[Rfam]
RNA sequence: GCAUCGGCUUAGCUAAAUGGUUACUUCUUUGGAAACUACCAAAAAUGUCUUCGGACUGCACGGUUCGACCAUGGGCGCUGUCCGGUGUUUUA
Numbered sequence: 001g002c003a004u005c006g007g008c009u010u011a012g013c014u015a016a017a018u019g020g021u022u023a024c025u026u027c028u029u030u031g032g033a034a035a036c037u038a039c040c041a042a043a044a045a046u047g048u049c050u051u052c053g054g055a056c057u058g059c060a061c062g063g064u065u066c067g068a069c070c071a072u073g074g075g076c077g078c079u080g081u082c083c084g085g086u087g088u089u090u091u092a
Stems, first nucleotide, its partner, number of pairs: 002087006012076003017072004026068002
RNA: Vault RNA